Shown here is a 160-nucleotide sequence from Lachnospiraceae bacterium OF09-33XD, a member of the family "Clostridiales-1 RNA". The match comes from Rfam's covariance-model search (86 bits). The family's RNA type in Rfam is small RNA. The family's consensus secondary structure is taken from published work.
RNA sequence: UGAAAGUCCCGGGCGGCAGCCGUGAGUCUCCGCACGCGAACAUGCGGUGACCCACGGAUACCGGACGGGCAGGCCGGUAUGAGCAAACAGCCCGUCAGGGCAGAUUGCGAAUACUGGCGGCAGCUGUGAGAGCACCAAAGGUGCGGACAGCUGACUUUCA
Numbered sequence: 001u002g003a004a005a006g007u008c009c010c011g012g013g014c015g016g017c018a019g020c021c022g023u024g025a026g027u028c029u030c031c032g033c034a035c036g037c038g039a040a041c042a043u044g045c046g047g048u049g050a051c052c053c054a055c056g057g058a059u060a061c062c063g064g065a066c067g068g069g070c071a072g073g074c075c076g077g078u079a080u081g082a083g084c085a086a087a088c089a090g091c092c093c094g095u096c097a098g099g100g101c102a103g104a105u106u107g108c109g110a111a112u113a114c115u116g117g118c119g120g121c122a123g124c125u126g127u128g129a130g131a132g133c134a135c136c137a138a139a140g141g142u143g144c145g146g147a148c149a150g151c152u153g154a155c156u157u158u159c160a
Stems, first nucleotide, its partner, number of pairs: 001160007008069004015062002018059001020057005026051003030047001032045003036041001073118008083108004090101004121153006132144004